Record summary: The record is a 195-nucleotide RNA sequence from Microtus ochrogaster, which matches "Small nucleolar RNA ZL1" in Rfam. Pairs were carried over by alignment from the consensus structure, which was predicted with RNAfold. Rfam 15.1 lists 300 matches to the family in 287 species. It is annotated as a C/D-box small nucleolar RNA. A reference for the family is Kishore et al. (2013), "Insights into snoRNA biogenesis and processing from PAR-CLIP of snoRNA core proteins and small RNA sequencing", Genome Biol. NCBI's taxonomy places the organism under Eukaryota, Dipnotetrapodomorpha, Glires, Myomorpha, Microtus. Rfam's curators write: Host gene TRRAP. Predicted target U2@U47. Only GU-rich region is homologous to other known snoRNAs. Conserved in vertebrates.
Nucleotides: 195
Base pairs, nucleotide, nucleotide: 004195005194006193007192008191009190010189014185015184016183027170028169029168030167035107037105038104040102044098045097049094050093051092052091053090054089055088056087059085061083065078067076068075069074109121110120111119124141125140126139127138143165144164145163146162148161149160150159151158
Number, partner (000 for none) and nucleotide at each position: 001000g002000g003000a004195g005194a006193a007192g008191c009190a010189a011000a012000g013000u014185g015184a016183u017000g018000a019000a020000c021000a022000a023000u024000a025000u026000u027170a028169c029168u030167g031000g032000a033000g034000c035107c036000c037105c038104a039000g040102a041000g042000a043000g044098g045097c046000a047000c048000a049094g050093u051092g052091u053090g054089u055088g056087u057000g058000c059085c060000u061083g062000u063000g064000u065078g066000u067076g068075u069074g070000u071000c072000u073000g074069u075068a076067u077000c078065c079000u080000u081000g082000u083061c084000u085059g086000u087056g088055c089054a090053u091052g092051c093050a094049c095000a096000c097045g098044u099000g100000a101000g102040u103000c104038u105037g106000a107035g108000g109121a110120u111119g112000g113000g114000u115000g116000u117000u118000g119111u120110g121109u122000g123000a124141u125140u126139g127138g128000u129000g130000g131000u132000a133000g134000g135000g136000a137000c138127c139126u140125a141124g142000c143165c144164a145163u146162g147000u148161g149160c150159c151158u152000u153000c154000u155000u156000c157000u158151g159150g160149g161148c162146u163145g164144u165143g166000a167030c168029a169028g170027u171000c172000a173000a174000a175000c176000u177000g178000a179000u180000a181000a182000g183016a184015u185014c186000u187000g188000a189010u190009u191008g192007c193006u194005u195004c